About this RNA
This 171-nucleotide sequence from Tissierella praeacuta belongs to the Rfam family "Group II catalytic intron D1-D4-3". It scores 144 bits against the family's covariance model. Group II introns are found in rRNA, tRNA and mRNA of organelles in fungi, plants and protists, and also in mRNA in bacteria. The source organism's lineage runs through Bacteria, Bacillota, Tissierellales, Tissierellaceae and Tissierella praeacuta.

RNA sequence: UCCAUGGCGACGUGGAAUCUGAAGGAAGCCGAAGGCAAAAUCCUGAACCGACGAACAGAAAUCACAUAAGGCUGAUUUAGGGAGGAUGAGUUUGCUUAACAAAACAAAGUCCAAUACUACCCGAACUCUUUACAGUAAAUGUGACGGUUACAUGGGAGGAAGGUUGUUGUU
Numbered sequence: 001u002c003c004a005u006g007g008c009g010a011c012g013u014g015g016a017a018u019c020u021g022a023a024g025g026a027a028g029c030c031g032a033a034g035g036c037a038a039a040a041u042c043c044u045g046a047a048c049c050g051a052c053g054a055a056c057a058g059a060a061a062u063c064a065c066a067u068a069a070g071g072c073u074g075a076u077u078u079a080g081g082g083a084g085g086a087u088g089a090g091u092u093u094g095c096u097u098a099a100c101a102a103a104a105c106a107a108a109g110u111c112c113a114a115u116a117c118u119a120c121c122c123g124a125a126c127u128c129u130u131u132a133c134a135g136u137a138a139a140u141g142u143g144a145c146g147g148u149u150a151c152a153u154g155g156g157a158g159g160a161a162g163g164u165u166g167u168u169g170u171u
Base pairs, nucleotide, nucleotide: 001016002015003014004013005012006011028171030169031168032167035164036163041157042156043155044154045153046149047148048147049146050145062144063143064142065141066140071136072135073134076132079129080128081127082126084112085111086110087109090105091104092103093102
Dot-bracket structure: ((((((....))))))...........(.(((..((....((((((((((...........(((((....(((..(..((((.((((..((((........))))...)))).............))))..).)))...))))))))))...))))).....))..))).)